[Rfam]
RNA sequence: UUCUGAUGUCCUUCAUUCCACCGGAGUCUGUGUCCAUCUCUGAUCCAGAUUCCCAGUGAGAUGAAGCGCAUGAGAUG
Numbered sequence: 001u002u003c004u005g006a007u008g009u010c011c012u013u014c015a016u017u018c019c020a021c022c023g024g025a026g027u028c029u030g031u032g033u034c035c036a037u038c039u040c041u042g043a044u045c046c047a048g049a050u051u052c053c054c055a056g057u058g059a060g061a062u063g064a065a066g067c068g069c070a071u072g073a074g075a076u077g
Stems, first nucleotide, its partner, number of pairs: 011066006019058003023053004028048003
Shown here is a 77-nucleotide sequence from Scyliorhinus torazame, a member of the family "mir-205 microRNA precursor family". Pairs were carried over by alignment from the consensus structure, which was predicted with RNAalifold. The match comes from Rfam's covariance-model search (72 bits). The literature on the family includes a 2003 paper in Science by Lim et al., "Vertebrate microRNA genes". Lineage of the source: Eukaryota > Eumetazoa > Bilateria > Galeoidea > Scyliorhinus. Rfam links the family to the GO terms RISC complex and miRNA-mediated post-transcriptional gene silencing.